RNA sequence: UUGACGGUGGUGUCCCAGGUCGCGGGCUCCGCACCCGCCUCGGUGCCGAGCAGGGCCUGCUCGCCGAAGAAGUCGCCGUCGGCGAGGGUGCCGUGCACGGCCUCCGCGCCGUACUCGCCCGCCCCGACCCGGCUGAGCUUGCCGUGCACGACCAGCACGACCCGGUCGACCGGCCGGCCCUCCUCGACGACGACGUCGCCGGGCUCGUACUCCUGCUGGGUGAACCGGCCCGCGAGGGCGUCCAGCGCGAGCUCGUCGUCGUAGCCGCGCAGCGGGGGGAGCUCGCCGAGCUCGCGCGGGAUGACCCGCACGUCGGCGCCGGUCGUCACGAACGUCACCCGCCCGUCGCCGACCGUGUAGGUGAGCCGCCGGUUGACGCGGUAGGCGCCGCCGUGCGCCUCCACCCACGGCAGCAGCUUCAGAAGCCACCGGGAGGUGAUCCCCUGCAUCUGGGGGACGGACUUGGUCGUGGUCGCCAGGUUCCGUGCCGCAGAUGUACUGAGGCUCAACUGCUCUUCCG
Numbered sequence: 001u002u003g004a005c006g007g008u009g010g011u012g013u014c015c016c017a018g019g020u021c022g023c024g025g026g027c028u029c030c031g032c033a034c035c036c037g038c039c040u041c042g043g044u045g046c047c048g049a050g051c052a053g054g055g056c057c058u059g060c061u062c063g064c065c066g067a068a069g070a071a072g073u074c075g076c077c078g079u080c081g082g083c084g085a086g087g088g089u090g091c092c093g094u095g096c097a098c099g100g101c102c103u104c105c106g107c108g109c110c111g112u113a114c115u116c117g118c119c120c121g122c123c124c125c126g127a128c129c130c131g132g133c134u135g136a137g138c139u140u141g142c143c144g145u146g147c148a149c150g151a152c153c154a155g156c157a158c159g160a161c162c163c164g165g166u167c168g169a170c171c172g173g174c175c176g177g178c179c180c181u182c183c184u185c186g187a188c189g190a191c192g193a194c195g196u197c198g199c200c201g202g203g204c205u206c207g208u209a210c211u212c213c214u215g216c217u218g219g220g221u222g223a224a225c226c227g228g229c230c231c232g233c234g235a236g237g238g239c240g241u242c243c244a245g246c247g248c249g250a251g252c253u254c255g256u257c258g259u260c261g262u263a264g265c266c267g268c269g270c271a272g273c274g275g276g277g278g279g280a281g282c283u284c285g286c287c288g289a290g291c292u293c294g295c296g297c298g299g300g301a302u303g304a305c306c307c308g309c310a311c312g313u314c315g316g317c318g319c320c321g322g323u324c325g326u327c328a329c330g331a332a333c334g335u336c337a338c339c340c341g342c343c344c345g346u347c348g349c350c351g352a353c354c355g356u357g358u359a360g361g362u363g364a365g366c367c368g369c370c371g372g373u374u375g376a377c378g379c380g381g382u383a384g385g386c387g388c389c390g391c392c393g394u395g396c397g398c399c400u401c402c403a404c405c406c407a408c409g410g411c412a413g414c415a416g417c418u419u420c421a422g423a424a425g426c427c428a429c430c431g432g433g434a435g436g437u438g439a440u441c442c443c444c445u446g447c448a449u450c451u452g453g454g455g456g457a458c459g460g461a462c463u464u465g466g467u468c469g470u471g472g473u474c475g476c477c478a479g480g481u482u483c484c485g486u487g488c489c490g491c492a493g494a495u496g497u498a499c500u501g502a503g504g505c506u507c508a509a510c511u512g513c514u515c516u517u518c519c520g
Base pairs, nucleotide, nucleotide: 006405007404008403009402010401012399014397016395018343019342025340026339031335032334040331041330048327052326054324055323056322057321062318063317064316065315066314067313069248073244075242077240078239079238080126081125082124090118092117093116095114097112098111099110100109101108133236134235137233138232142227144225145224146221147220149218150217155212159210167207168206172204174202175201176200177199178198180192183189249311251309252308255305256304257303258302259301260300266296267295268294269293271292272291273290275286277284344357345356346355367393368392370390371389372388377385406446407445409443410442412440414438415437418433419432420431422430452491454489455488457486458485459484460483461482462480463479464478465477466476467475493518496513497512502511503510

Shown here is a 520-nucleotide RNA sequence from Actinomadura verrucosospora, a member of the family "Saccharopolyspora sRNA 350". A reference for the family is Liu et al. (2013), "Prediction and characterization of small non-coding RNAs related to secondary metabolites in Saccharopolyspora erythraea", PLoS One. The family has 2 seed sequences and 1,170 matches in Rfam 15.1. The match comes from Rfam's covariance-model search (172 bits). Rfam links the family to the GO term regulation of secondary metabolite biosynthetic process.